[Rfam]
RNA: mir-301 microRNA precursor family
RNA sequence: AGCGGCCAGUUGCUCUGACAAUGUUGCACUACUGUUUCCACAGUUCAAGCAGUGCAACAGUACUGUCAUAGCAUUGGGCCUUUGC
Numbered sequence: 001a002g003c004g005g006c007c008a009g010u011u012g013c014u015c016u017g018a019c020a021a022u023g024u025u026g027c028a029c030u031a032c033u034g035u036u037u038c039c040a041c042a043g044u045u046c047a048a049g050c051a052g053u054g055c056a057a058c059a060g061u062a063c064u065g066u067c068a069u070a071g072c073a074u075u076g077g078g079c080c081u082u083u084g085c
Base pairs, nucleotide, nucleotide: 002082004080007077009075011073012072013071014070016068017067018066019065023058024057025056026055027054028053029052030051034041